[Rfam]
RNA sequence: UAGACCAAUGAUGACUACUGGUGGCAUUUGAGUCAUGAGUGAUGAAUAAUGUGUGUGGAACUCUGAGGUCCAG
Numbered sequence: 001u002a003g004a005c006c007a008a009u010g011a012u013g014a015c016u017a018c019u020g021g022u023g024g025c026a027u028u029u030g031a032g033u034c035a036u037g038a039g040u041g042a043u044g045a046a047u048a049a050u051g052u053g054u055g056u057g058g059a060a061c062u063c064u065g066a067g068g069u070c071c072a073g
Stems, first nucleotide, its partner, number of pairs: 003070004
RNA: Small nucleolar RNA SNORD113/SNORD114 family